[Rfam]
RNA: SAM-I/IV (S-adenosyl methionine) riboswitch aptamer
RNA sequence: ACCCUACAUCCUGAGUAGGGCUGACGUCCUCGCCAACCUGCCUUCCUGGGCAAGGUGGUUACCGAUAUCGGUGAUGUGGUCAAUUGACAAAUAUACAGGUGGCC
Numbered sequence: 001a002c003c004c005u006a007c008a009u010c011c012u013g014a015g016u017a018g019g020g021c022u023g024a025c026g027u028c029c030u031c032g033c034c035a036a037c038c039u040g041c042c043u044u045c046c047u048g049g050g051c052a053a054g055g056u057g058g059u060u061a062c063c064g065a066u067a068u069c070g071g072u073g074a075u076g077u078g079g080u081c082a083a084u085u086g087a088c089a090a091a092u093a094u095a096c097a098g099g100u101g102g103c104c
Base pairs, nucleotide, nucleotide: 006077007076008075009074010073015031017030018029019028020027021026032059033058034057037055038054039053040051041050042049045099046098047097048096079088080087081086